[Rfam]
RNA sequence: GGCUCGGGAGCGAACCUGUGGGAGGGUUCGCAGGAAUAGAGCCCACACCCGUUUCGCAAGCGGCCGGCGGCUGAGGCCCGACAGCCUGCCCG
Numbered sequence: 001g002g003c004u005c006g007g008g009a010g011c012g013a014a015c016c017u018g019u020g021g022g023a024g025g026g027u028u029c030g031c032a033g034g035a036a037u038a039g040a041g042c043c044c045a046c047a048c049c050c051g052u053u054u055c056g057c058a059a060g061c062g063g064c065c066g067g068c069g070g071c072u073g074a075g076g077c078c079c080g081a082c083a084g085c086c087u088g089c090c091c092g
Stems, first nucleotide, its partner, number of pairs: 001043005010031008064092001066090003069086005
Shown here is a 92-nucleotide sequence, a member of the family "Rhodo-rpoB RNA".